[Rfam]
RNA: mraW RNA
Organism: Geotrypetes seraphini
RNA sequence: GCUUUUACCUGCUUCGGGCCUUCCUCGUUGCCGGGUCCUGCCUACUUUCUGUUUCCCCGAAGGCAGGACCCGGCAACGAGGAAGGACCGAAGCAAGUAAAAGCAGCA
Numbered sequence: 001g002c003u004u005u006u007a008c009c010u011g012c013u014u015c016g017g018g019c020c021u022u023c024c025u026c027g028u029u030g031c032c033g034g035g036u037c038c039u040g041c042c043u044a045c046u047u048u049c050u051g052u053u054u055c056c057c058c059g060a061a062g063g064c065a066g067g068a069c070c071c072g073g074c075a076a077c078g079a080g081g082a083a084g085g086a087c088c089g090a091a092g093c094a095a096g097u098a099a100a101a102g103c104a105g106c107a
Stems, first nucleotide, its partner, number of pairs: 008096001010094005016088002019085025